A member of the RNA family "U11 spliceosomal RNA" from Umbelopsis isabellina, 178 nucleotides long.
RNA sequence: AAAAAGGGCGCGUCACUAACUCAGAAAUGGGUUUUCUUGCUGUGACAGAAUCCAUGGACCUACAGUUUGCUCGCAAGCAACGUAACCAUUGGUUUUCUGGGGGAUGGUUUAUCAAGACAUCUCUAGCGCAUAAUUUUUGACUAUUGGCGGUAUGGGCUUCGCUUAAGCUUGGCCGCCU
Numbered sequence: 001a002a003a004a005a006g007g008g009c010g011c012g013u014c015a016c017u018a019a020c021u022c023a024g025a026a027a028u029g030g031g032u033u034u035u036c037u038u039g040c041u042g043u044g045a046c047a048g049a050a051u052c053c054a055u056g057g058a059c060c061u062a063c064a065g066u067u068u069g070c071u072c073g074c075a076a077g078c079a080a081c082g083u084a085a086c087c088a089u090u091g092g093u094u095u096u097c098u099g100g101g102g103g104a105u106g107g108u109u110u111a112u113c114a115a116g117a118c119a120u121c122u123c124u125a126g127c128g129c130a131u132a133a134u135u136u137u138u139g140a141c142u143a144u145u146g147g148c149g150g151u152a153u154g155g156g157c158u159u160c161g162c163u164u165a166a167g168c169u170u171g172g173c174c175g176c177c178u
Stems, first nucleotide, its partner, number of pairs: 008129004013045004046099005053092001054089004100124007147176004153171007
Rfam 15.1 lists 2,595 matches to the family in 1,202 species. The family is grouped with related families in Rfam's "U1 clan". Pairs were carried over by alignment from the consensus structure, which is taken from published work. The family's RNA type in Rfam is spliceosomal small nuclear RNA. The match comes from Rfam's covariance-model search (64 bits).